[Rfam]
RNA sequence: GUGCGAUGAGUCGAUAUGCAGAUUUUCUGCAAAUUGAAGCAUGGGAGGUCAUAACGCAGGAGCGGACCUUGAUCAGUUGUGUGAACCUGCUGAUCACACAAAAGUGCCCUUAUCCCCAGUCUACGGAUUGGGGAUUUUU
Numbered sequence: 001g002u003g004c005g006a007u008g009a010g011u012c013g014a015u016a017u018g019c020a021g022a023u024u025u026u027c028u029g030c031a032a033a034u035u036g037a038a039g040c041a042u043g044g045g046a047g048g049u050c051a052u053a054a055c056g057c058a059g060g061a062g063c064g065g066a067c068c069u070u071g072a073u074c075a076g077u078u079g080u081g082u083g084a085a086c087c088u089g090c091u092g093a094u095c096a097c098a099c100a101a102a103a104g105u106g107c108c109c110u111u112a113u114c115c116c117c118a119g120u121c122u123a124c125g126g127a128u129u130g131g132g133g134a135u136u137u138u139u
Stems, first nucleotide, its partner, number of pairs: 012036004017031005043109003046069004055064003070096008097106003113134009
Rfam assigns this 139-nucleotide RNA from Streptococcus sanguinis to the family "MarS sRNA". About the family: Interacts with the 5'UTR of the mga transcript (the multiple virulence gene regulator gene) and was renamed MarS for mag-activating regulatory sRNA. In MarS deletion strains expression of mga and several Mga-activated genes is reduced. This down-regulation of virulence factors leads to increased susceptibility of the deletion strain to phagocytosis, reduced adherence to human keratinocytes. However, the lack of MarS increased bacterial dissemination and tolerance towards oxidative stress. Rfam links the family to the GO terms positive regulation of translation, ncRNA-mediated and mRNA 5'-UTR binding. The literature on the family includes a 2009 paper in PLoS One by Perez et al., "A genome-wide analysis of small regulatory RNAs in the human pathogen group A Streptococcus". Rfam classes the family as a small RNA.